[Rfam]
RNA sequence: CUCUGAUGAUGAUCUCCGUUUUGUGCCACGUGUCUGGGCCACUGAUUAAACCCUGAUGGAACUGAGGGACUGAGGAG
Numbered sequence: 001c002u003c004u005g006a007u008g009a010u011g012a013u014c015u016c017c018g019u020u021u022u023g024u025g026c027c028a029c030g031u032g033u034c035u036g037g038g039c040c041a042c043u044g045a046u047u048a049a050a051c052c053c054u055g056a057u058g059g060a061a062c063u064g065a066g067g068g069a070c071u072g073a074g075g076a077g
Stems, first nucleotide, its partner, number of pairs: 001077004
This 77-nucleotide RNA from Pangasianodon hypophthalmus belongs to the Rfam family "Small nucleolar RNA SNORD66". Its family is annotated with RNA processing and nucleolus in the Gene Ontology. By type it is a C/D-box small nucleolar RNA. A reference for the family is Huttenhofer et al. (2001), "RNomics: an experimental approach that identifies 201 candidates for novel, small, non-messenger RNAs in mouse", EMBO J. Pairs were carried over by alignment from the consensus structure, which was predicted with RNAalifold. A search with the family's covariance model found it, with a score of 78 bits. About the family: snoRNA HBII-142 is part of the C/D family of snoRNAs. It is the human orthologue of the mouse MBII-142 snoRNA and is predicted to guide 2'O-ribose methylation of small 18S rRNA at residue C1272.